[Rfam]
Rfam assigns this 116-nucleotide sequence from Erysipelotrichaceae bacterium RD49 to the family "azaaromatic riboswitch aptamer (yjdF RNA)". NCBI's taxonomy places the organism under Bacteria, Bacillati, Bacillota, Erysipelotrichales, Erysipelotrichaceae.
RNA sequence: AUAGGCAAAGAUAAAAACACAACGCAGAGUUUCUGCAGAGCUGGUAGGUAGUCCAGCCGCAUCAAAUGAUGUAAGUAACCUUCCUCCUUAGGUCGUCCAUUCUUUGUUCAUUACAG
Numbered sequence: 001a002u003a004g005g006c007a008a009a010g011a012u013a014a015a016a017a018c019a020c021a022a023c024g025c026a027g028a029g030u031u032u033c034u035g036c037a038g039a040g041c042u043g044g045u046a047g048g049u050a051g052u053c054c055a056g057c058c059g060c061a062u063c064a065a066a067u068g069a070u071g072u073a074a075g076u077a078a079c080c081u082u083c084c085u086c087c088u089u090a091g092g093u094c095g096u097c098c099a100u101u102c103u104u105u106g107u108u109c110a111u112u113a114c115a116g
Stems, first nucleotide, its partner, number of pairs: 004108008040057005059072005083092003
Dot-bracket structure: ...((((((((............................(((((........))))).(((((....)))))..........(((....)))........))))))))........
Pairs were carried over by alignment from the consensus structure, which is taken from published work.